[Rfam]
RNA sequence: AUUGGAGCAGUGACGAGCAUUUUGUUGUGGACUAGAGUUUCUGAUGCUGCCUUGGCAGUAUUUGACGACCAAACCCUUGGCUGUCUGAGCUCUGCA
Numbered sequence: 001a002u003u004g005g006a007g008c009a010g011u012g013a014c015g016a017g018c019a020u021u022u023u024g025u026u027g028u029g030g031a032c033u034a035g036a037g038u039u040u041c042u043g044a045u046g047c048u049g050c051c052u053u054g055g056c057a058g059u060a061u062u063u064g065a066c067g068a069c070c071a072a073a074c075c076c077u078u079g080g081c082u083g084u085c086u087g088a089g090c091u092c093u094g095c096a
Stems, first nucleotide, its partner, number of pairs: 003094006038067001040065002045060006